[Rfam]
A member of the RNA family "U5 spliceosomal RNA" from Loxia curvirostra, 115 nucleotides long. The source organism's lineage runs through Eukaryota, Dipnotetrapodomorpha, Tetrapoda, Australaves and Loxia. Pairs were carried over by alignment from the consensus structure, which is taken from published work. It is annotated as a spliceosomal small nuclear RNA. U5 RNA is a component of both types of known spliceosome. The precise function of this molecule is unknown, though it is known that the 5' loop is required for splice site selection and p220 binding, and that both the 3' stem-loop and the Sm site are important for Sm protein binding and cap methylation. A reference for the family is Thomas et al. (1990), "The spliceosomal snRNAs of Caenorhabditis elegans", Nucleic Acids Res.
RNA sequence: AAACUCUGGUUUCUCUUCAGACCGAACAAAUCUUUUGCCUUUUACUAAAGAUUUCCGUGGAGAGGAACAGUCACGAGUGACUUGGAAUUUUUGGUGGCUCUGCUAUUGCAGAGCU
Dot-bracket structure: ..((((..(((((((((((........((((((((...........))))))))...)))))))))))......))))..................((((((......)))))).